[Rfam]
RNA sequence: CGCCGCCGCACGGGAGAGUUCCGGAUCCGAUCCGGGCACCGAAGGAGCAGCACCUCCCCGUCAAUCUCUCAGGUACCGAGGACCGUGCGGGCUCC
Number, nucleotide and partner (000 for none) at each position: 001c000002g000003c000004c000005g000006c090007c089008g088009c087010a086011c085012g084013g083014g000015a000016g000017a000018g000019u000020u036021c035022c034023g033024g000025a000026u000027c000028c000029g000030a000031u000032c000033c023034g022035g021036g020037c000038a074039c073040c072041g070042a069043a000044g000045g068046a067047g066048c000049a000050g000051c000052a061053c060054c000055u000056c000057c000058c000059c000060g053061u052062c000063a000064a000065u000066c047067u046068c045069u042070c041071a000072g040073g039074u038075a000076c000077c000078g000079a000080g000081g000082a000083c013084c012085g011086u010087g009088c008089g007090g006091g000092c000093u000094c000095c000

Glycine riboswitch aptamer: a 95-nucleotide sequence from Rhodococcus sp. CX.
The base pairs follow the family's consensus structure.
The match comes from Rfam's covariance-model search (61 bits).
Lineage of the source: Bacteria > Bacillati > Actinomycetota > Mycobacteriales > Rhodococcus.